Shown here is a 66-nucleotide sequence from Carpinus fangiana, a member of the family "Small nucleolar RNA U49". The family is grouped with related families in Rfam's "SNORD49 clan". Gene Ontology terms of the family: RNA processing and nucleolus. The match comes from Rfam's covariance-model search (48 bits).
[Rfam]
RNA sequence: UCCCGAUGAGGAAGCAAUCCCCUAAAAUUGAUAGGAAGUGCCGUAUGACACUCCAACAGCGCACAG
Number, nucleotide and partner (000 for none) at each position: 001u000002c000003c000004c000005g000006a000007u000008g000009a000010g000011g000012a000013a000014g060015c059016a000017a000018u000019c000020c000021c000022c000023u000024a000025a000026a000027a000028u000029u000030g000031a000032u000033a000034g000035g054036a000037a052038g051039u050040g049041c000042c000043g000044u000045a000046u000047g000048a000049c040050a039051c038052u037053c000054c035055a000056a000057c000058a000059g015060c014061g000062c000063a000064c000065a000066g000